Source information
This 170-nucleotide sequence from Oenococcus oeni belongs to the Rfam family "Lysine riboswitch aptamer". It scores 84 bits against the family's covariance model. The family's consensus secondary structure is taken from published work.
[Rfam]
RNA sequence: CAAUAAAAUAGAGGCGCGAUCAUCACAAAAACUGCUGAGUGUGUAUUCACGAUGAAGCAGUCCUAAGGGUUAUCGCCGAAACGAGAUUAUAAAUGCAUAUAAUCUUUGUUGGGACAUGUGGAAAAACCGCAUGGACUGUCUCGGUCAAUCCGGGGAGUGCUAUUAAUUGG
Numbered sequence: 001c002a003a004u005a006a007a008a009u010a011g012a013g014g015c016g017c018g019a020u021c022a023u024c025a026c027a028a029a030a031a032c033u034g035c036u037g038a039g040u041g042u043g044u045a046u047u048c049a050c051g052a053u054g055a056a057g058c059a060g061u062c063c064u065a066a067g068g069g070u071u072a073u074c075g076c077c078g079a080a081a082c083g084a085g086a087u088u089a090u091a092a093a094u095g096c097a098u099a100u101a102a103u104c105u106u107u108g109u110u111g112g113g114a115c116a117u118g119u120g121g122a123a124a125a126a127c128c129g130c131a132u133g134g135a136c137u138g139u140c141u142c143g144g145u146c147a148a149u150c151c152g153g154g155g156a157g158u159g160c161u162a163u164u165a166a167u168u169g170g
Stems, first nucleotide, its partner, number of pairs: 007164005016076005022070003031061006080110004084105008111137002115133007139155006